[Rfam]
Background: ASpks TB sRNA: a 75-nucleotide RNA from Streptomyces sp. Rer75. Pairs were carried over by alignment from the consensus structure, which is taken from published work. Taxonomically the source falls in Streptomyces (Bacteria, Actinomycetes, Kitasatosporales, Streptomycetaceae). The family's RNA type in Rfam is antisense RNA.
RNA sequence: CUUGAUGGAGCCGAUCAGCAGCGGCUUGCCCGCGGGCCGGUCCUGGCCGUACGUGGCGAGCAGCGCCUGCGCCUC
Numbered sequence: 001c002u003u004g005a006u007g008g009a010g011c012c013g014a015u016c017a018g019c020a021g022c023g024g025c026u027u028g029c030c031c032g033c034g035g036g037c038c039g040g041u042c043c044u045g046g047c048c049g050u051a052c053g054u055g056g057c058g059a060g061c062a063g064c065g066c067c068u069g070c071g072c073c074u075c
Stems, first nucleotide, its partner, number of pairs: 014026001016024001031071003038065002043060002047056003